This 136-nucleotide RNA from Cavia porcellus belongs to the Rfam family "Small nucleolar RNA SNORA4".
It scores 108 bits against the family's covariance model.
The base pairs follow the family's consensus structure, which was predicted with PFOLD.
The family has 7 seed sequences and 290 matches in Rfam 15.1.
From the family's description: ACA4 is a member of the H/ACA class of snoRNA that guide the sites of modification of uridines to pseudouridines.
Its Rfam clan is "SNORA4 clan".
The family's RNA type in Rfam is H/ACA-box small nucleolar RNA.

[Rfam]
RNA sequence: AGACCAAAAGUUAAAUUUCGAGGGUAAAGUUUUUUAAUAAGCUUUACCAAUCUAAGCUCUUUGGGAGGCUAAAAGACCACACUCCACAGUGAACUAUACCACUCAGUAUAGUUCAUUACUAUUUUGUGGCUACAUU
Numbered sequence: 001a002g003a004c005c006a007a008a009a010g011u012u013a014a015a016u017u018u019c020g021a022g023g024g025u026a027a028a029g030u031u032u033u034u035u036a037a038u039a040a041g042c043u044u045u046a047c048c049a050a051u052c053u054a055a056g057c058u059c060u061u062u063g064g065g066a067g068g069c070u071a072a073a074a075g076a077c078c079a080c081a082c083u084c085c086a087c088a089g090u091g092a093a094c095u096a097u098a099c100c101a102c103u104c105a106g107u108a109u110a111g112u113u114c115a116u117u118a119c120u121a122u123u124u125u126g127u128g129g130c131u132a133c134a135u136u
Stems, first nucleotide, its partner, number of pairs: 004064005013058001016055002022051001023048004030040002074131002077129005088117012
Dot-bracket structure: ...(((((....(..((....(((((...((.......))....))))..)..))..).))))).........((.(((((......((((((((((((......)))))))))))).......))))))).....